[Rfam]
RNA: RAGATH-18 RNA
RNA sequence: CCUAUGGAGAGUACAAGAACUUGUGAGUAGUAUUUGAAGUUAUUUAGUACAAAAGCAUACUCUAAGAAGUAGGAA
Numbered sequence: 001c002c003u004a005u006g007g008a009g010a011g012u013a014c015a016a017g018a019a020c021u022u023g024u025g026a027g028u029a030g031u032a033u034u035u036g037a038a039g040u041u042a043u044u045u046a047g048u049a050c051a052a053a054a055g056c057a058u059a060c061u062c063u064a065a066g067a068a069g070u071a072g073g074a075a
Stems, first nucleotide, its partner, number of pairs: 001073005009062005022057003030050003035046002